This 129-nucleotide RNA from Xenopus tropicalis belongs to the Rfam family "Small nucleolar RNA SNORA69". It scores 80 bits against the family's covariance model. The family's RNA type in Rfam is H/ACA-box small nucleolar RNA. Rfam's curators write: U69 is a member of the H/ACA class of small nucleolar RNAs (snoRNAs) which act as guides in the the modification of uridines to pseudouridines. The family's consensus secondary structure was predicted with PFOLD.

RNA sequence: AAAGCAGGUUGCAAUUACAGUUCUUCAUUCUGUGGAGUUGCUGUCAUUAUCCUGCUGAGAAUAAAGAUGUCAGACUGAAUGGUUUCACCUUAACAUGGGGGAAAUUGUUGCUUCUUGACAUUGACAACU
Numbered sequence: 001a002a003a004g005c006a007g008g009u010u011g012c013a014a015u016u017a018c019a020g021u022u023c024u025u026c027a028u029u030c031u032g033u034g035g036a037g038u039u040g041c042u043g044u045c046a047u048u049a050u051c052c053u054g055c056u057g058a059g060a061a062u063a064a065a066g067a068u069g070u071c072a073g074a075c076u077g078a079a080u081g082g083u084u085u086c087a088c089c090u091u092a093a094c095a096u097g098g099g100g101g102a103a104a105u106u107g108u109u110g111c112u113u114c115u116u117g118a119c120a121u122u123g124a125c126a127a128c129u
Base pairs, nucleotide, nucleotide: 003056004055005054006053007052008051018043019042020041021040024037025036026035066122067121068120069119070118071117072116073114074113080107081106082105083104084103085102086101088099089098090097